[Rfam]
RNA sequence: CUCUCAUCCAGAGAGGUGGAGGGAUACGGCCCUGUGAAGCCCGGCAACCCACGGCAAUGAUGCGCGAAGGGUGCCAAUUCCGGCAAAGCAAAACGCUUUGCGAGAUGAGGG
Numbered sequence: 001c002u003c004u005c006a007u008c009c010a011g012a013g014a015g016g017u018g019g020a021g022g023g024a025u026a027c028g029g030c031c032c033u034g035u036g037a038a039g040c041c042c043g044g045c046a047a048c049c050c051a052c053g054g055c056a057a058u059g060a061u062g063c064g065c066g067a068a069g070g071g072u073g074c075c076a077a078u079u080c081c082g083g084c085a086a087a088g089c090a091a092a093a094c095g096c097u098u099u100g101c102g103a104g105a106u107g108a109g110g111g
Base pairs, nucleotide, nucleotide: 001111002110003109004108005107006106007105008104013042015041016040017039021032022031023030027082028081029080043075044074045073046072048071049070050066052064053063079103084100085099086098087097088096089095
Shown here is a 111-nucleotide RNA sequence from Ktedonospora formicarum, a member of the family "SAM riboswitch aptamer (S box leader)". Lineage of the source: Bacteria > Bacillati > Chloroflexota > Ktedonobacterales > Ktedonospora. A search with the family's covariance model found it, with a score of 85 bits. Rfam links the family to the GO term regulation of gene expression.